Rfam assigns this 95-nucleotide RNA sequence from Spiroplasma sp. TIUS-1 to the family "Purine riboswitch aptamer". Pairs were carried over by alignment from the consensus structure, which is taken from published work. The organism belongs to Spiroplasma, within Bacteria. The match comes from Rfam's covariance-model search (52 bits).
[Rfam]
RNA sequence: GUAAAAUUCAAUAUGAAAACUUAUAUAAUCCUUCAUAACGGGAAGGAGUCUCUACACAGCACCUAUGCUGUAUUAUGAGUUACUAGACUUUUUUU
Numbered sequence: 001g002u003a004a005a006a007u008u009c010a011a012u013a014u015g016a017a018a019a020c021u022u023a024u025a026u027a028a029u030c031c032u033u034c035a036u037a038a039c040g041g042g043a044a045g046g047a048g049u050c051u052c053u054a055c056a057c058a059g060c061a062c063c064u065a066u067g068c069u070g071u072a073u074u075a076u077g078a079g080u081u082a083c084u085a086g087a088c089u090u091u092u093u094u095u
Stems, first nucleotide, its partner, number of pairs: 018081008029047006056071006